[Rfam]
FMN riboswitch aptamer (RFN element): a 123-nucleotide RNA from Halanaerobium praevalens.
The RFN element is a highly conserved domain that is found frequently in the 5'-untranslated regions of prokaryotic mRNAs that encode for flavin mononucleotide (FMN) biosynthesis and transport proteins.
The organism belongs to Halanaerobium praevalens, within Bacteria.
RNA sequence: UAUUAUCUUCAGGGUCUGGUGAGCGAAAAAGCAAUUCCAAACCGGUGGUUAUAGUCCACGAGCAUGAGCUGAACUGGUGUAAUUCCAGUACCGACGGUAAAGUCCGGAAUAAAGAAGAUUAAA
Number, nucleotide and partner (000 for none) at each position: 001u000002a000003u121004u000005a119006u118007c117008u116009u115010c114011a000012g000013g000014g000015u000016c000017u039018g038019g037020u000021g000022a000023g000024c000025g000026a000027a000028a000029a000030a000031g000032c000033a000034a000035u000036u000037c019038c018039a017040a000041a103042c102043c093044g092045g059046u058047g057048g056049u000050u000051a000052u000053a000054g091055u090056c048057c047058a046059c045060g000061a000062g069063c068064a000065u000066g000067a000068g063069c062070u000071g000072a000073a089074c088075u087076g086077g085078u000079g000080u000081a000082a000083u000084u000085c077086c076087a075088g074089u073090a055091c054092c044093g043094a000095c106096g105097g104098u000099a000100a000101a000102g042103u041104c097105c096106g095107g000108a000109a000110u000111a000112a000113a000114g010115a009116a008117g007118a006119u005120u000121a003122a000123a000